RNA: Small nucleolar RNA SNORD69
Organism: Heterocephalus glaber
RNA sequence: GCCAUGAAGCAAAUGAUGAUAAAUUGGAUCUGACUCGCUGUGCUGAGUUUGUUCAAUCCAACCCUGAGCUUCAUCUU
Dot-bracket structure: (..(((((((.........................................................)))))))..)